[Rfam]
RNA sequence: ACAGUACAAACUGAGCAGGCAAUGGAUCAUUUUGAUUCAAAGGGCUGGGCCGUAAGGCAACAGAUGACUAAUCACGCAUCUGUGGGACAGUA
Numbered sequence: 001a002c003a004g005u006a007c008a009a010a011c012u013g014a015g016c017a018g019g020c021a022a023u024g025g026a027u028c029a030u031u032u033u034g035a036u037u038c039a040a041a042g043g044g045c046u047g048g049g050c051c052g053u054a055a056g057g058c059a060a061c062a063g064a065u066g067a068c069u070a071a072u073c074a075c076g077c078a079u080c081u082g083u084g085g086g087a088c089a090g091u092a
Stems, first nucleotide, its partner, number of pairs: 010091004016086001018046003023039005049058003060083006
Shown here is a 92-nucleotide RNA sequence from Anaerocolumna sedimenticola, a member of the family "NiCo (Nickel/Cobalt) riboswitch aptamer". Lineage of the source: Bacteria > Bacillati > Bacillota > Clostridia > Anaerocolumna. On this family, see Furukawa et al., Mol Cell 2015: "Bacterial riboswitches cooperatively bind Ni(2+) or Co(2+) ions and control expression of heavy metal transporters".